[Rfam]
The family of this 164-nucleotide RNA from Lactiplantibacillus plantarum is "M-box riboswitch aptamer (ykoK leader)". Rfam's curators write: M-box riboswitch, also know as ykoK leader is described as a metaloregulatory RNA that sense divalent metals and function as a genetic control element of genes related to divalent metal transport in bacteria. It was first reported upstream of the B.subtilis ykoK gene and genes with related functions in other bacteria. Its family is annotated with regulation of gene expression and response to magnesium ion in the Gene Ontology. Lineage of the source: Bacteria > Bacillota > Bacilli > Lactobacillaceae > Lactiplantibacillus plantarum.
RNA sequence: AUCAGUUGCAAUUAGGUGAGGUUACUUUAAGAAUAUAGGUUAUCGCCCAGAAAUGUCGAGAGACAGGAAUGAGUAAAGCAGAAUUUGCCGAAUUAAGGCUCUUUCAAGAUAACUAGACUAGUUCUUACGUCUUAAAGUGCUAAAACUCAAUGAAUGCGUCGAUG
Numbered sequence: 001a002u003c004a005g006u007u008g009c010a011a012u013u014a015g016g017u018g019a020g021g022u023u024a025c026u027u028u029a030a031g032a033a034u035a036u037a038g039g040u041u042a043u044c045g046c047c048c049a050g051a052a053a054u055g056u057c058g059a060g061a062g063a064c065a066g067g068a069a070u071g072a073g074u075a076a077a078g079c080a081g082a083a084u085u086u087g088c089c090g091a092a093u094u095a096a097g098g099c100u101c102u103u104u105c106a107a108g109a110u111a112a113c114u115a116g117a118c119u120a121g122u123u124c125u126u127a128c129g130u131c132u133u134a135a136a137g138u139g140c141u142a143a144a145a146c147u148c149a150a151u152g153a154a155u156g157c158g159u160c161g162a163u164g
Stems, first nucleotide, its partner, number of pairs: 005160001007158004011151002013096001015147003020141003025137008039113005045074002048071002054065004081105003087099003115125003
Dot-bracket structure: ....(.(((((([.(((..(((..((((((((......(((((.((.((....((((....))))....)).))......(((...(((......])))...)))...))))).(((.....)))....)))))))).)))...)))..))...)))).)....